[Rfam]
The family of this 79-nucleotide RNA sequence from Methylocystis heyeri is "Fluoride riboswitch aptamer (crcB RNA motif)". The literature on the family includes a 2012 paper in Science by Baker et al., "Widespread genetic switches and toxicity resistance proteins for fluoride". Its family is annotated with positive regulation of gene expression and response to fluoride in the Gene Ontology. The base pairs follow the family's consensus structure, which is taken from published work.
RNA sequence: GUUCUUAACGGCGAUGGAGUUCGCCGUAUAACCGCCCGAACCUCGAUGCAGUGAACGGGCUGAUGACUCCUACCAGCAA
Dot-bracket structure: .........[[[[..((((((]]]]........((((...................))))....)))))).........